[Rfam]
RNA sequence: UUGCCCACCGGGGCCGUGGAUACCUGCUUCAUUUUU
Numbered sequence: 001u002u003g004c005c006c007a008c009c010g011g012g013g014c015c016g017u018g019g020a021u022a023c024c025u026g027c028u029u030c031a032u033u034u035u036u
Base pairs, nucleotide, nucleotide: 003014004013005012006011017026018025019024
The record is a 36-nucleotide RNA from Microtus transcaspicus, which matches "XIST RNA A repeat" in Rfam. The family's consensus secondary structure was predicted with CMfinder. Rfam classes the family as a small RNA. Rfam's curators put it in the seed alignment.